[Rfam]
RNA sequence: ACAGCGGAAACCGAAAAGCUUAACAAAGAGUAGGUA
Number, nucleotide and partner (000 for none) at each position: 001a000002c000003a020004g019005c018006g000007g000008a000009a000010a035011c034012c033013g000014a000015a000016a000017a000018g005019c004020u003021u000022a000023a000024c000025a000026a000027a000028g000029a000030g000031u000032a000033g012034g011035u010036a000